[Rfam]
Record summary:
Shown here is a 133-nucleotide RNA sequence from Oryzias melastigma, a member of the family "Small nucleolar RNA SNORA77". A reference for the family is Schattner et al. (2006), "A computational screen for mammalian pseudouridylation guide H/ACA RNAs", RNA. By type it is an H/ACA-box small nucleolar RNA. About the family: ACA63 (SNORA77) is a member of the H/ACA class of snoRNAs that guide the sites of modification of uridines to pseudouridines. This snoRNA was identified by computational screening and its expression in mouse experimentally verified by Northern blot and primer extension analysis. ACA63 is proposed to guide the pseudouridylation of 18S rRNA U814. A search with the family's covariance model found it, with a score of 64 bits. The family's consensus secondary structure was predicted with RNAalifold.
RNA sequence: GCAGACUCACUCUGUUCUUCGCUGCAAACUCCAGCUUGGGACUUUUUCUGUCUGCUACAUAAACAUGCAGAAUGUAAAGACCGGACAGGCUUUUUUCUCAAGCAUGUUCAUCUGUAUGUUCUGCUAUAUUUCA
Numbered sequence: 001g002c003a004g005a006c007u008c009a010c011u012c013u014g015u016u017c018u019u020c021g022c023u024g025c026a027a028a029c030u031c032c033a034g035c036u037u038g039g040g041a042c043u044u045u046u047u048c049u050g051u052c053u054g055c056u057a058c059a060u061a062a063a064c065a066u067g068c069a070g071a072a073u074g075u076a077a078a079g080a081c082c083g084g085a086c087a088g089g090c091u092u093u094u095u096u097c098u099c100a101a102g103c104a105u106g107u108u109c110a111u112c113u114g115u116a117u118g119u120u121c122u123g124c125u126a127u128a129u130u131u132c133a
Stems, first nucleotide, its partner, number of pairs: 001055006014042005022034003067124007075116002078113003083109005